[Rfam]
Plastid-atpF group II-D1 intron: a 53-nucleotide RNA sequence from Coptis chinensis. The family has 49 seed sequences and 1,372 matches in Rfam 15.1. The match comes from Rfam's covariance-model search (66 bits). Rfam's curators write: Plastid atpF is a non-coding RNA (ncRNA) recognised in plastids. It has been reported in the intron group II-D1 region of ATP synthase (atpF) genes. The family's consensus secondary structure was predicted with LocARNA.
RNA sequence: UGUGUUUUAUCCGAUAUAGAACACUCAUAUCGAUAAAAUUAUUUGAACCAUUU
Numbered sequence: 001u002g003u004g005u006u007u008u009a010u011c012c013g014a015u016a017u018a019g020a021a022c023a024c025u026c027a028u029a030u031c032g033a034u035a036a037a038a039u040u041a042u043u044u045g046a047a048c049c050a051u052u053u
Stems, first nucleotide, its partner, number of pairs: 012032006